[Rfam]
A member of the RNA family "mir-981 microRNA precursor family" from Ladona fulva, 80 nucleotides long.
Rfam 15.1 lists 180 matches to the family in 170 species.
The source organism's lineage runs through Eukaryota, Pancrustacea, Palaeoptera, Libelluloidea and Ladona.
A reference for the family is Legeai et al. (2010), "Bioinformatic prediction, deep sequencing of microRNAs and expression analysis during phenotypic plasticity in the pea aphid, Acyrthosiphon pisum", BMC Genomics.
Rfam links the family to the GO terms miRNA-mediated post-transcriptional gene silencing and RISC complex.

RNA sequence: CCUGGCACGGUACGGGUUUCGCGACCACUGAGCCGUGUAAUGGACAGGUUCGUUGUCGACGAAACCUGCAAUGUGCUGGG
Dot-bracket structure: ((((((......(((((((((........(((((............)))))........)))))))))......))))))
Numbered sequence: 001c002c003u004g005g006c007a008c009g010g011u012a013c014g015g016g017u018u019u020c021g022c023g024a025c026c027a028c029u030g031a032g033c034c035g036u037g038u039a040a041u042g043g044a045c046a047g048g049u050u051c052g053u054u055g056u057c058g059a060c061g062a063a064a065c066c067u068g069c070a071a072u073g074u075g076c077u078g079g080g
Stems, first nucleotide, its partner, number of pairs: 001080006013068009030051005